[Rfam]
RNA sequence: CGGCCGGGACGACCCGGCCACUUCCUCGGGCACCGGCCGGGACGACCCGG
Numbered sequence: 001c002g003g004c005c006g007g008g009a010c011g012a013c014c015c016g017g018c019c020a021c022u023u024c025c026u027c028g029g030g031c032a033c034c035g036g037c038c039g040g041g042a043c044g045a046c047c048c049g050g
Base pairs, nucleotide, nucleotide: 002019003018004017005016006015007014008013037050038049039048040047041046
Guanidine-II riboswitch aptamer (mini-ykkC): a 50-nucleotide RNA sequence from Xanthobacter tagetidis. It scores 47 bits against the family's covariance model. The organism belongs to Xanthobacter, within Bacteria.